[Rfam]
RNA sequence: UGAUGGUAUGAUGAAUCCUGAAAUGGAAUCUUCGCAUGUCAGACUUCAGAGAUACCUCGAGUAUCGAUGAGAAGCCAUUUCAUUCUUCUGAGCCAGCU
Numbered sequence: 001u002g003a004u005g006g007u008a009u010g011a012u013g014a015a016u017c018c019u020g021a022a023a024u025g026g027a028a029u030c031u032u033c034g035c036a037u038g039u040c041a042g043a044c045u046u047c048a049g050a051g052a053u054a055c056c057u058c059g060a061g062u063a064u065c066g067a068u069g070a071g072a073a074g075c076c077a078u079u080u081c082a083u084u085c086u087u088c089u090g091a092g093c094c095a096g097c098u
Base pairs, nucleotide, nucleotide: 002097004095005094006093007092051065052064053063054062
RNA: Small nucleolar RNA R64/Z200 family